Shown here is a 256-nucleotide sequence from Paenibacillus tyrphae, a member of the family "BsrG". By type it is a small RNA. From the family's description: bsrE, bsrG and bsrH pair through intermolecular interactions with antisense sRNAs. They form type I toxin/antitoxin system that includes an mRNA encoding for a short, toxic peptide (bsrE, bsrG and bsrH) and an antitoxin that is comprised of an antisense RNA. bsrG encodes a 39-amino-acid toxin, and the 180 nucleotide antisense sRNA called SR4 acts as the antitoxin (they overlap by 123 nucleotides). It scores 64 bits against the family's covariance model. The family's consensus secondary structure was predicted with WAR. The source organism's lineage runs through Bacteria, Bacillota, Caryophanales, Paenibacillaceae and Paenibacillus.

[Rfam]
RNA sequence: CACGAUAGAAAGGCUUUUAGGGCGGUCGGCUAGCCUCCUGGAACGGAGGUGAUGGCCAAUGGAGGUAUACCAAGCACUUACCUUGAUGUUCGGGUUCGGGAUGUUCAUCUUGACAUUGCUAACGUACCUAAACAAAAAGAAAUAGACCGCCCUCGGUCAAAGCAGCGGUCCUUUCUUGAUCCUCAUACAAUUUGUCUAAGCCACCGCCCUGAGAAGCGGCUAUUGUGCGGGAGUGCGGAUGUUCGCGGCAUCCGCA
Numbered sequence: 001c002a003c004g005a006u007a008g009a010a011a012g013g014c015u016u017u018u019a020g021g022g023c024g025g026u027c028g029g030c031u032a033g034c035c036u037c038c039u040g041g042a043a044c045g046g047a048g049g050u051g052a053u054g055g056c057c058a059a060u061g062g063a064g065g066u067a068u069a070c071c072a073a074g075c076a077c078u079u080a081c082c083u084u085g086a087u088g089u090u091c092g093g094g095u096u097c098g099g100g101a102u103g104u105u106c107a108u109c110u111u112g113a114c115a116u117u118g119c120u121a122a123c124g125u126a127c128c129u130a131a132a133c134a135a136a137a138a139g140a141a142a143u144a145g146a147c148c149g150c151c152c153u154c155g156g157u158c159a160a161a162g163c164a165g166c167g168g169u170c171c172u173u174u175c176u177u178g179a180u181c182c183u184c185a186u187a188c189a190a191u192u193u194g195u196c197u198a199a200g201c202c203a204c205c206g207c208c209c210u211g212a213g214a215a216g217c218g219g220c221u222a223u224u225g226u227g228c229g230g231g232a233g234u235g236c237g238g239a240u241g242u243u244c245g246c247g248g249c250a251u252c253c254g255c256a
Base pairs, nucleotide, nucleotide: 001227002226003225004224006222007221008220012202013201014200015199016198019153020152021151022150024147026145031052032050034049035048036047037046038045061123064120065119066118067117074089075088076087099114164183165182204219205218206217207216234256235255236254237253238252239251240250241249242248243247